A member of the RNA family "mir-2060 microRNA precursor family" from Branchiostoma floridae, 91 nucleotides long. The family has 7 seed sequences and 3,696 matches in Rfam 15.1. Its family is annotated with miRNA-mediated post-transcriptional gene silencing and RISC complex in the Gene Ontology.
RNA sequence: GUUUACCUGUGUGUGGAUGGCAUUUAGCAGGGGCAGGCAUGCUUACCUGUGUGUGGAUGAUGUUCAGCACCAAGAACAGACAUGUUUCCCA
Numbered sequence: 001g002u003u004u005a006c007c008u009g010u011g012u013g014u015g016g017a018u019g020g021c022a023u024u025u026a027g028c029a030g031g032g033g034c035a036g037g038c039a040u041g042c043u044u045a046c047c048u049g050u051g052u053g054u055g056g057a058u059g060a061u062g063u064u065c066a067g068c069a070c071c072a073a074g075a076a077c078a079g080a081c082a083u084g085u086u087u088c089c090c091a
Stems, first nucleotide, its partner, number of pairs: 004082001007079004018072003023067002026064003029058001031052001033050005039044001